Shown here is a 164-nucleotide sequence from Paenibacillus baekrokdamisoli, a member of the family "Group II catalytic intron D1-D4-3". Rfam links the family to the GO term Group II intron splicing. The base pairs follow the family's consensus structure.
[Rfam]
RNA sequence: UAGUUCGUGAGGAUGCGUGCGGAGGGUCUGAAGGCAAAACCCGGAACAGGCGGCAUACCAAGUUGGCUGACGAAGUCGGAUUACCCUGCAAGAGAAGGGGAUGUCCCAUACCACCAAUGGCUUCGGAAGUUAGGAGGAACUGGAUUCGGGGGAAAGUCGGUUGU
Numbered sequence: 001u002a003g004u005u006c007g008u009g010a011g012g013a014u015g016c017g018u019g020c021g022g023a024g025g026g027u028c029u030g031a032a033g034g035c036a037a038a039a040c041c042c043g044g045a046a047c048a049g050g051c052g053g054c055a056u057a058c059c060a061a062g063u064u065g066g067c068u069g070a071c072g073a074a075g076u077c078g079g080a081u082u083a084c085c086c087u088g089c090a091a092g093a094g095a096a097g098g099g100g101a102u103g104u105c106c107c108a109u110a111c112c113a114c115c116a117a118u119g120g121c122u123u124c125g126g127a128a129g130u131u132a133g134g135a136g137g138a139a140c141u142g143g144a145u146u147c148g149g150g151g152g153a154a155a156g157u158c159g160g161u162u163g164u
Stems, first nucleotide, its partner, number of pairs: 003014004028163001030161001034157002040150005047142003056139001058137002066130003071125006078106004084099004